[Rfam]
A member of the RNA family "Plant signal recognition particle RNA" from Gossypium mustelinum, 306 nucleotides long. Its Rfam clan is "SRP clan".

RNA sequence: GCCGAGUUGGGUAACGCUAGCUUGUGACCCUCGUGGGGGCAUUAAGGUGGUUGGACUAUGGGCCUACUCAUUGAGUCGGAACUGUAGUGACUGUAUUCUGGCACGCCCAUUCCAAGCAAGGAGUUGGGCUACGAGUCUUGAGCGAAAGCUUUGAGUCUCGUUGCUCCUAGAGUGGAAGGCAAAGCGUGAGGCUGGUUUCACAGAGCAGCGAAAACUUCCCUCUCUUUGCGGUGGAAGGAUAACGGGCCGGUGUCACUUGGAUCCUUCAUGGCUCCUUGGGUCUUCUCUAAACGGACAACCACUUUU
Numbered sequence: 001g002c003c004g005a006g007u008u009g010g011g012u013a014a015c016g017c018u019a020g021c022u023u024g025u026g027a028c029c030c031u032c033g034u035g036g037g038g039g040c041a042u043u044a045a046g047g048u049g050g051u052u053g054g055a056c057u058a059u060g061g062g063c064c065u066a067c068u069c070a071u072u073g074a075g076u077c078g079g080a081a082c083u084g085u086a087g088u089g090a091c092u093g094u095a096u097u098c099u100g101g102c103a104c105g106c107c108c109a110u111u112c113c114a115a116g117c118a119a120g121g122a123g124u125u126g127g128g129c130u131a132c133g134a135g136u137c138u139u140g141a142g143c144g145a146a147a148g149c150u151u152u153g154a155g156u157c158u159c160g161u162u163g164c165u166c167c168u169a170g171a172g173u174g175g176a177a178g179g180c181a182a183a184g185c186g187u188g189a190g191g192c193u194g195g196u197u198u199c200a201c202a203g204a205g206c207a208g209c210g211a212a213a214a215c216u217u218c219c220c221u222c223u224c225u226u227u228g229c230g231g232u233g234g235a236a237g238g239a240u241a242a243c244g245g246g247c248c249g250g251u252g253u254c255a256c257u258u259g260g261a262u263c264c265u266u267c268a269u270g271g272c273u274c275c276u277u278g279g280g281u282c283u284u285c286u287c288u289a290a291a292c293g294g295a296c297a298a299c300c301a302c303u304u305u306u
Stems, first nucleotide, its partner, number of pairs: 001040003004023007028037003044305010056293001059289002061286002066281001068279003073274005078264003082260003087256004092252002098250005104244002107238002110236005116229008126166004131161005137155004141150003167172001174219005185210003192203003